Source information: The record is a 266-nucleotide RNA sequence from Actinomortierella ambigua, which matches "Group I catalytic intron" in Rfam. Taxonomically the source falls in Actinomortierella (Eukaryota, Opisthokonta, Mortierellomycotina, Mortierellaceae). A search with the family's covariance model found it, with a score of 91 bits. The family's consensus secondary structure is taken from published work.
Nucleotides: 266
Stems, first nucleotide, its partner, number of pairs: 005025001007023005029040003051203004056198002061096006069087002073083001097150002104143001110136001154245001156244005206231004212227003251264005
Number, partner (000 for none) and nucleotide at each position: 001000a002000a003000u004000c005025u006000u007023g008022g009021g010020u011019u012000a013000a014000a015000a016000c017000a018000c019011a020010g021009c022008u023007c024000c025005a026000u027000a028000g029040a030039a031038u032000c033000g034000u035000a036000a037000g038031a039030u040029u041000c042000u043000a044000c045000u046000g047000u048000a049000a050000a051203u052202u053201g054200g055000g056198u057197g058000a059000a060000u061096u062095g063094c064093a065092a066091a067000a068000a069087a070086c071000a072000u073083c074000c075000g076000u077000u078000a079000u080000u081000a082000a083073g084000c085000g086070g087069u088000c089000a090000a091066u092065u093064u094063g095062c096061a097150g098149c099000g100000a101000a102000g103000c104143u105000u106000g107000g108000u109000u110136c111000g112000a113000u114000g115000u116000a117000a118000c119000a120000g121000u122000g123000u124000a125000u126000a127000g128000c129000a130000c131000a132000c133000u134000g135000a136110g137000u138000g139000g140000a141000u142000c143104a144000a145000g146000a147000a148000c149098g150097u151000u152000c153000a154245a155000c156244g157243a158242c159241u160240a161000a162000u163000c164000g165000g166000u167000g168000a169000g170000u171000u172000a173000c174000a175000u176000c177000a178000a179000c180000a181000a182000u183000a184000a185000a186000c187000c188000g189000g190000a191000c192000a193000c194000g195000a196000g197057u198056g199000c200054c201053c202052a203051a204000c205000a206231a207230c208229c209228a210000g211000a212227u213226u214225c215000a216000u217000u218000a219000a220000g221000a222000a223000u224000g225214g226213a227212a228209u229208g230207g231206u232000u233000g234000a235000a236000g237000a238000c239000a240160u241159a242158g243157u244156c245154u246000a247000a248000u249000c250000c251264c252263a253262g254261u255260g256000g257000u258000a259000a260255c261254a262253u263252u264251g265000g266000g

Group I catalytic introns are large self-splicing ribozymes.